[Rfam]
RNA sequence: GCAGACCGAAAGCCGCGAUGCUCGCCACACACAGGACGUAUCCCGCGUCUUUUCUCGCGAGCGGGCUAAGGUCUGAGUAUUCCAACUUCCAUCGGAUGACGCUGCCUGGCUGUCAGCUGGACAGCGGUUUCAACCGGAUUCUCCAGACGAGGAACGGUCUUCACUGGACCCGGCGACCUUACUAGAAAUCCCUCACCUCUUCCUCGGAAUCGAACAUGGCUGUAAGCUUCUACAUAGCGCACGUCCUAUGGCAAAUGGUCUCAUUACCCUGCCGGACCCAGCCCGUCGAGGUGCUGAAAGUGUCGCGGAAGCCGAGCAUCCCAUCCUCACCUCCCGGCCAGGUUCUACGCGUCGACGUUUCAACUGCGCACCUCAAGUCUGCUUCUCGAAGGAAGUGGAGCUUAGUUGGCUGCUCUUUUGGCUCUGACUGCGGCCCAGCAAUGUACCGAGCAGUUGGUGUAUGGAGGAGCAAGCUCGACUCUGCCGAACGACCAGAGGGCGAGCGACUGGAAGCUCGGCAAACGCGGACGAUGGAGUGCUGAGAUGGGAUGGCUCUUGAGUGCAAUUCGCGGUACGUCGCUCGCUGGCAACGAUGUCGAGACUCGGCUCCAUUGCCGGGUCUGAGGAUGGGACUUGCCUGAGCGGCGUAACUCAACUCAGACUAAUCUCGGUCUGC
Numbered sequence: 001g002c003a004g005a006c007c008g009a010a011a012g013c014c015g016c017g018a019u020g021c022u023c024g025c026c027a028c029a030c031a032c033a034g035g036a037c038g039u040a041u042c043c044c045g046c047g048u049c050u051u052u053u054c055u056c057g058c059g060a061g062c063g064g065g066c067u068a069a070g071g072u073c074u075g076a077g078u079a080u081u082c083c084a085a086c087u088u089c090c091a092u093c094g095g096a097u098g099a100c101g102c103u104g105c106c107u108g109g110c111u112g113u114c115a116g117c118u119g120g121a122c123a124g125c126g127g128u129u130u131c132a133a134c135c136g137g138a139u140u141c142u143c144c145a146g147a148c149g150a151g152g153a154a155c156g157g158u159c160u161u162c163a164c165u166g167g168a169c170c171c172g173g174c175g176a177c178c179u180u181a182c183u184a185g186a187a188a189u190c191c192c193u194c195a196c197c198u199c200u201u202c203c204u205c206g207g208a209a210u211c212g213a214a215c216a217u218g219g220c221u222g223u224a225a226g227c228u229u230c231u232a233c234a235u236a237g238c239g240c241a242c243g244u245c246c247u248a249u250g251g252c253a254a255a256u257g258g259u260c261u262c263a264u265u266a267c268c269c270u271g272c273c274g275g276a277c278c279c280a281g282c283c284c285g286u287c288g289a290g291g292u293g294c295u296g297a298a299a300g301u302g303u304c305g306c307g308g309a310a311g312c313c314g315a316g317c318a319u320c321c322c323a324u325c326c327u328c329a330c331c332u333c334c335c336g337g338c339c340a341g342g343u344u345c346u347a348c349g350c351g352u353c354g355a356c357g358u359u360u361c362a363a364c365u366g367c368g369c370a371c372c373u374c375a376a377g378u379c380u381g382c383u384u385c386u387c388g389a390a391g392g393a394a395g396u397g398g399a400g401c402u403u404a405g406u407u408g409g410c411u412g413c414u415c416u417u418u419u420g421g422c423u424c425u426g427a428c429u430g431c432g433g434c435c436c437a438g439c440a441a442u443g444u445a446c447c448g449a450g451c452a453g454u455u456g457g458u459g460u461a462u463g464g465a466g467g468a469g470c471a472a473g474c475u476c477g478a479c480u481c482u483g484c485c486g487a488a489c490g491a492c493c494a495g496a497g498g499g500c501g502a503g504c505g506a507c508u509g510g511a512a513g514c515u516c517g518g519c520a521a522a523c524g525c526g527g528a529c530g531a532u533g534g535a536g537u538g539c540u541g542a543g544a545u546g547g548g549a550u551g552g553c554u555c556u557u558g559a560g561u562g563c564a565a566u567u568c569g570c571g572g573u574a575c576g577u578c579g580c581u582c583g584c585u586g587g588c589a590a591c592g593a594u595g596u597c598g599a600g601a602c603u604c605g606g607c608u609c610c611a612u613u614g615c616c617g618g619g620u621c622u623g624a625g626g627a628u629g630g631g632a633c634u635u636g637c638c639u640g641a642g643c644g645g646c647g648u649a650a651c652u653c654a655a656c657u658c659a660g661a662c663u664a665a666u667c668u669c670g671g672u673c674u675g676c
Stems, first nucleotide, its partner, number of pairs: 001676004007670003012573007020062005034050006073660005080310004139153005156171002160167001173306005179300001194293006574648010
Rfam assigns this 676-nucleotide RNA from Steccherinum ochraceum to the family "Nuclear RNase P".
The family is grouped with related families in Rfam's "RNaseP clan".
A reference for the family is Frank and Pace (1998), "Ribonuclease P: unity and diversity in a tRNA processing ribozyme", Annu Rev Biochem.
Ribonuclease P (RNase P) is a ubiquitous endoribonuclease, found in archaea, bacteria and eukarya as well as chloroplasts and mitochondria. Its best characterised activity is the generation of mature 5'-ends of tRNAs by cleaving the 5'-leader elements of precursor-tRNAs. Cellular RNase Ps are ribonucleoproteins.